The record is an 88-nucleotide sequence from Streptomyces actuosus, which matches "Streptomyces RNA 3202" in Rfam.
The family's RNA type in Rfam is small RNA.
The literature on the family includes a 2011 paper in RNA Biol by Vockenhuber et al., "Deep sequencing-based identification of small non-coding RNAs in Streptomyces coelicolor".
About the family: Identified by deep sequencing of transcriptome at the end of exponential growth phase. Appears smaller on northern blot than sequencing transcript.
The source organism's lineage runs through Bacteria, Actinomycetes, Kitasatosporales, Streptomycetaceae and Streptomyces.
The pairing is the family consensus, mapped onto this sequence.
[Rfam]
RNA sequence: CCAAGUCCCGACGCACUCCCCCCGGUGCCGGGACUUUCCCCGAGCCGGGCUUCGGCACCUCCCCCCGGUGCCGGGGCCCGGCUCCUUC
Numbered sequence: 001c002c003a004a005g006u007c008c009c010g011a012c013g014c015a016c017u018c019c020c021c022c023c024g025g026u027g028c029c030g031g032g033a034c035u036u037u038c039c040c041c042g043a044g045c046c047g048g049g050c051u052u053c054g055g056c057a058c059c060u061c062c063c064c065c066c067g068g069u070g071c072c073g074g075g076g077c078c079c080g081g082c083u084c085c086u087u088c
Base pairs, nucleotide, nucleotide: 005034006033007032008031009030010029012027013026014025042084043083044082045081046080047079048078049077050076051075053073054072055071056070057069058068059067